[Rfam]
RNA sequence: UAUGGCAAAUGAAGAAUUGAUUUUCUAUGCUUAAAACACAGAUUUAACAGUGUUGACAAACAAUCUCCGCUUAUUAUCUGAUGCCAUA
Numbered sequence: 001u002a003u004g005g006c007a008a009a010u011g012a013a014g015a016a017u018u019g020a021u022u023u024u025c026u027a028u029g030c031u032u033a034a035a036a037c038a039c040a041g042a043u044u045u046a047a048c049a050g051u052g053u054u055g056a057c058a059a060a061c062a063a064u065c066u067c068c069g070c071u072u073a074u075u076a077u078c079u080g081a082u083g084c085c086a087u088a
Stems, first nucleotide, its partner, number of pairs: 003086005

The record is an 88-nucleotide sequence from Arabis alpina, which matches "Small nucleolar RNA R16" in Rfam.
Rfam classes the family as a C/D-box small nucleolar RNA.
The organism belongs to Arabis, within Eukaryota.
A reference for the family is Marker et al. (2002), "Experimental RNomics: identification of 140 candidates for small non-messenger RNAs in the plant Arabidopsis thaliana", Curr Biol.